[Rfam]
Annotation
Shown here is a 126-nucleotide sequence from Actinoplanes aureus, a member of the family "c-di-AMP riboswitch aptamer (ydaO/yuaA leader)". It scores 62 bits against the family's covariance model.
RNA sequence: GUCCGUCCCGCGCCGCGCAGUCAGCGGCGCACCCGGGACGACCUCGGGGUGAAGCCGCUUCGGCGGCCGGGCAACCUUCCCGCCCGAACCCGACAGCUAACCUCGCAGGCGUGCCGGAGGGAAUUC
Numbered sequence: 001g002u003c004c005g006u007c008c009c010g011c012g013c014c015g016c017g018c019a020g021u022c023a024g025c026g027g028c029g030c031a032c033c034c035g036g037g038a039c040g041a042c043c044u045c046g047g048g049g050u051g052a053a054g055c056c057g058c059u060u061c062g063g064c065g066g067c068c069g070g071g072c073a074a075c076c077u078u079c080c081c082g083c084c085c086g087a088a089c090c091c092g093a094c095a096g097c098u099a100a101c102c103u104c105g106c107a108g109g110c111g112u113g114c115c116g117g118a119g120g121g122a123a124u125u126c
Stems, first nucleotide, its partner, number of pairs: 001022001024106004029101001034046002047091003055066004069085004